The record is an 88-nucleotide RNA from Muraenolepis orangiensis, which matches "let-7 microRNA precursor family" in Rfam. The base pairs follow the family's consensus structure, which was predicted with RNAalifold.
RNA sequence: GCGGGAUGAGGUAGUAGGUUGUGUGGUUUUUCGGGGUCGUGAUUUGACCCCAUCAGGAGAUAACUAUACAACAUACUGCCUUUCCCGA
Numbered sequence: 001g002c003g004g005g006a007u008g009a010g011g012u013a014g015u016a017g018g019u020u021g022u023g024u025g026g027u028u029u030u031u032c033g034g035g036g037u038c039g040u041g042a043u044u045u046g047a048c049c050c051c052a053u054c055a056g057g058a059g060a061u062a063a064c065u066a067u068a069c070a071a072c073a074u075a076c077u078g079c080c081u082u083u084c085c086c087g088a
Base pairs, nucleotide, nucleotide: 002087003086004085005084006083008082009081010080011079012078013077014076015075016074018072019071020070021069022068023067024066025065026064027063034050035049036048037047053058
Dot-bracket structure: .(((((.(((((((((.((((((((((......((((.........))))..(....)....)))))))))).)))))))))))))).
Rfam describes the family as follows. This family represents the microRNAs (miRNA) let-7 and mir-98. let-7 was identified from a study of developmental timing in C. elegans, and was later shown to be part of a much larger class of non-coding RNAs termed miRNAs. The family is grouped with related families in Rfam's "let-7 microRNA precursor clan".